[Rfam]
Rfam assigns this 64-nucleotide RNA sequence from Caenorhabditis brenneri to the family "mir-35_2 microRNA precursor family".
RNA sequence: AGCUGGUUUCUUCUCUGUUAAUGAGUCAAUAAUUAGCGUUCAUUAACUGGAGUAAACCAGCUCU
Numbered sequence: 001a002g003c004u005g006g007u008u009u010c011u012u013c014u015c016u017g018u019u020a021a022u023g024a025g026u027c028a029a030u031a032a033u034u035a036g037c038g039u040u041c042a043u044u045a046a047c048u049g050g051a052g053u054a055a056a057c058c059a060g061c062u063c064u
Stems, first nucleotide, its partner, number of pairs: 001062003005058005010052004017047007
It scores 59 bits against the family's covariance model. The family has 9 seed sequences and 24 matches in Rfam 15.1.